This 88-nucleotide sequence from Litchfieldia stipae belongs to the Rfam family "ZMP/ZTP riboswitch aptamer (pfl RNA motif)".

RNA sequence: AUAAAUCGUAGUAACUGACGAGAUUGUGGAUUUAACCACAAGGGAGCUACGUAAUUAGCCAUAAUAGCCGUUCGUCUGGGCAAGAGGC
Numbered sequence: 001a002u003a004a005a006u007c008g009u010a011g012u013a014a015c016u017g018a019c020g021a022g023a024u025u026g027u028g029g030a031u032u033u034a035a036c037c038a039c040a041a042g043g044g045a046g047c048u049a050c051g052u053a054a055u056u057a058g059c060c061a062u063a064a065u066a067g068c069c070g071u072u073c074g075u076c077u078g079g080g081c082a083a084g085a086g087g088c
Stems, first nucleotide, its partner, number of pairs: 003055001007051006015043002017076005026039004065083001067081003